[Rfam]
RNA sequence: GGGCAGGCUCUGUUUACUUAGCCCAGCGGUUCCUUCGAGCCCAGCCUUCAUGUGCCAACCAGUCUUGCUCGCGAGGAUGGUUCGAGACCAGCAGGCGCCCUCCAGUCCUUUA
Numbered sequence: 001g002g003g004c005a006g007g008c009u010c011u012g013u014u015u016a017c018u019u020a021g022c023c024c025a026g027c028g029g030u031u032c033c034u035u036c037g038a039g040c041c042c043a044g045c046c047u048u049c050a051u052g053u054g055c056c057a058a059c060c061a062g063u064c065u066u067g068c069u070c071g072c073g074a075g076g077a078u079g080g081u082u083c084g085a086g087a088c089c090a091g092c093a094g095g096c097g098c099c100c101u102c103c104a105g106u107c108c109u110u111u112a
Stems, first nucleotide, its partner, number of pairs: 002107003006103002021096003026092002029089001034086007
Shown here is a 112-nucleotide RNA sequence from Myotis davidii, a member of the family "Vault RNA".
Rfam 15.1 lists 2,873 matches to the family in 431 species.
About the family: This family of RNAs are found as part of the enigmatic vault ribonucleoprotein complex.
By type it is a non-coding RNA gene.
The source organism's lineage runs through Eukaryota, Opisthokonta, Bilateria, Chiroptera and Myotis.